[Rfam]
RNA sequence: UGCAGCUGUGUCAAAUUCAUUGCCCGCCUCUCCUGUGGCAGGGAGUGGUCCAAGCAGCUGCCACAGCAACAAUCUGCCGUCCAUGGGCUUCAGAACCCUUUGUGGGCUCUGGGGACAGUUUUUCUGCAGACACUG
Numbered sequence: 001u002g003c004a005g006c007u008g009u010g011u012c013a014a015a016u017u018c019a020u021u022g023c024c025c026g027c028c029u030c031u032c033c034u035g036u037g038g039c040a041g042g043g044a045g046u047g048g049u050c051c052a053a054g055c056a057g058c059u060g061c062c063a064c065a066g067c068a069a070c071a072a073u074c075u076g077c078c079g080u081c082c083a084u085g086g087g088c089u090u091c092a093g094a095a096c097c098c099u100u101u102g103u104g105g106g107c108u109c110u111g112g113g114g115a116c117a118g119u120u121u122u123u124c125u126g127c128a129g130a131c132a133c134u135g
Stems, first nucleotide, its partner, number of pairs: 002061004018047004023042002026039003076127002079124001088113002091111003
Small nucleolar RNA SNORA5: a 135-nucleotide sequence from Podarcis lilfordi. Rfam's curators write: ACA5 is a member of the H/ACA class of snoRNA that guide the sites of modification of uridines to pseudouridines. A search with the family's covariance model found it, with a score of 72 bits. The family is grouped with related families in Rfam's "SNORA5 clan". Gene Ontology terms of the family: RNA processing and nucleolus. The family has 6 seed sequences and 2,226 matches in Rfam 15.1. Rfam classes the family as an H/ACA-box small nucleolar RNA.